[Rfam]
RNA: Glutamine-II riboswitch aptamer
RNA sequence: GCACGUUCACCUCGCUCCGGUGAGGCGCAGUUCGAUCCAGGCCAUGGAACGGGGACCUGGA
Numbered sequence: 001g002c003a004c005g006u007u008c009a010c011c012u013c014g015c016u017c018c019g020g021u022g023a024g025g026c027g028c029a030g031u032u033c034g035a036u037c038c039a040g041g042c043c044a045u046g047g048a049a050c051g052g053g054g055a056c057c058u059g060g061a
Stems, first nucleotide, its partner, number of pairs: 004051005010025005036061006042054002